[Rfam]
RNA: c-di-GMP-I riboswitch aptamer
RNA sequence: AGUAACCAUGGGCAAACCAAUCGAAAGGUUGGGACGCAAAGUUUUGGAGUCUGCCGUAUCGCCAGAUGCAAUGAUCGUCCAACUGCCCCG
Numbered sequence: 001a002g003u004a005a006c007c008a009u010g011g012g013c014a015a016a017c018c019a020a021u022c023g024a025a026a027g028g029u030u031g032g033g034a035c036g037c038a039a040a041g042u043u044u045u046g047g048a049g050u051c052u053g054c055c056g057u058a059u060c061g062c063c064a065g066a067u068g069c070a071a072u073g074a075u076c077g078u079c080c081a082a083c084u085g086c087c088c089c090g
Base pairs, nucleotide, nucleotide: 012037013036017032018031019030020029021028022027040084041083042082043081046080047079048078049075050074051073056069057068058067059066
Dot-bracket structure: ...........((...((((((....))))))...))..((((..((((((....((((......))))...)))..)))))))......